Shown here is a 181-nucleotide RNA from Schizosaccharomyces cryophilus, a member of the family "small nucleolar RNA snR94". Gene Ontology terms of the family: nucleolus and RNA processing.

RNA sequence: UUGUUGCAACCUUCUAAUAGCUUUACAUCUCCUAAUCUCAAGGAGAAGGGUUAGAAUGUACCGUGUUUUACGGGAGUUCUUUUCCUGUAGAGUUACAAUGGUUGCUAGAAUAACCGUAAGUCAUAGUACAUAUCAAGGCUGAAUUACCCUUGGUGUGUCUCCAUUUGAGAACGGACAUAAA
Dot-bracket structure: .....(((((.........(((((((.....................(((...((((...(((((...)))))..))))....)))))))))).......)))))........((((..........(((((((((((.........)))))))))))............)))).......
A reference for the family is Li et al. (2005), "Identification and functional analysis of 20 Box H/ACA small nucleolar RNAs (snoRNAs) from Schizosaccharomyces pombe", J Biol Chem. Pairs were carried over by alignment from the consensus structure, which was predicted with RNAalifold.